This 67-nucleotide RNA from Bombyx mori belongs to the Rfam family "mir-2774 microRNA precursor family".
A reference for the family is Liu et al. (2010), "MicroRNAs of Bombyx mori identified by Solexa sequencing", BMC Genomics.
The family's consensus secondary structure was predicted with RNAalifold.
Its family is annotated with RISC complex and miRNA-mediated post-transcriptional gene silencing in the Gene Ontology.
The source organism's lineage runs through Eukaryota, Panarthropoda, Obtectomera, Bombycidae and Bombyx.
[Rfam]
RNA sequence: ACAACAUUCGGACCGUCGGUCUGCCGAGUAAUAUCAGCCGCUUGUUGGAAGAUAUUCCCUUCGUUGU
Numbered sequence: 001a002c003a004a005c006a007u008u009c010g011g012a013c014c015g016u017c018g019g020u021c022u023g024c025c026g027a028g029u030a031a032u033a034u035c036a037g038c039c040g041c042u043u044g045u046u047g048g049a050a051g052a053u054a055u056u057c058c059c060u061u062c063g064u065u066g067u
Stems, first nucleotide, its partner, number of pairs: 004064002010058003015053003020049004025044005